[Rfam]
RNA sequence: GGAUGUGAGGGCGAUCUGGCUGCGACAUCUGUCACCCCAUUGAUCGCCAGGGUUGAUUCGGCUGAUCUGGCUGGCUAGGGGGGUGUCCCCUUCCUCCCUCACCGCUCCAUGUGCGUCCCUCCCAAAGCUGCGCGCUCGGUUGAAGAGGACGACCUUCCCCGAUAGAGGAGGACCGUUCUUCGGUCAAGGGUAUGCGAGUAGCUGCGCUCCCCUGCUGGAACCUCCAAACAAGCUCUCAAAAUAGGGUAGGGAAGGAAGAGCAUGAGAAGAA
Numbered sequence: 001g002g003a004u005g006u007g008a009g010g011g012c013g014a015u016c017u018g019g020c021u022g023c024g025a026c027a028u029c030u031g032u033c034a035c036c037c038c039a040u041u042g043a044u045c046g047c048c049a050g051g052g053u054u055g056a057u058u059c060g061g062c063u064g065a066u067c068u069g070g071c072u073g074g075c076u077a078g079g080g081g082g083g084u085g086u087c088c089c090c091u092u093c094c095u096c097c098c099u100c101a102c103c104g105c106u107c108c109a110u111g112u113g114c115g116u117c118c119c120u121c122c123c124a125a126a127g128c129u130g131c132g133c134g135c136u137c138g139g140u141u142g143a144a145g146a147g148g149a150c151g152a153c154c155u156u157c158c159c160c161g162a163u164a165g166a167g168g169a170g171g172a173c174c175g176u177u178c179u180u181c182g183g184u185c186a187a188g189g190g191u192a193u194g195c196g197a198g199u200a201g202c203u204g205c206g207c208u209c210c211c212c213u214g215c216u217g218g219a220a221c222c223u224c225c226a227a228a229c230a231a232g233c234u235c236u237c238a239a240a241a242u243a244g245g246g247u248a249g250g251g252a253a254g255g256a257a258g259a260g261c262a263u264g265a266g267a268a269g270a271a
Base pairs, nucleotide, nucleotide: 001108002107003106005102006101007100008099009098010097011096013093014092018090019089024087025086026085027084028083029082030081032079033078035074036073037070038069039068042067043066044065045064046062047061048060116171117170118168119167120166121165122139123138125136127135128134140162141161142160147158148157149156201261202260203259207258208257210255211254213252215250222249223248225246
7SK RNA: a 271-nucleotide RNA sequence from Marmota marmota.
The match comes from Rfam's covariance-model search (268 bits).
Lineage of the source: Eukaryota > Bilateria > Gnathostomata > Theria > Marmota marmota.
About the family: 7SK was discovered as an abundant small nuclear RNA in the mid-70s but a possible function has only recently been suggested. Two independent studies have found that 7SK RNA binds the CDK9/cyclin T complex (known as elongation factor P-TEFb). P-TEFb activates transcription by phosphorylating the C-terminal domain of RNA polymerase II. This process is negatively regulated by the 7SK RNP. The secondary structure of 7SK RNA shown here was proposed by Wasserman and Steitz on the basis of chemical modification and enzymatic cleavage experiments. This family contains a number of annotated pseudogenes and 7SK derived repeats.
The family is grouped with related families in Rfam's "7SK clan".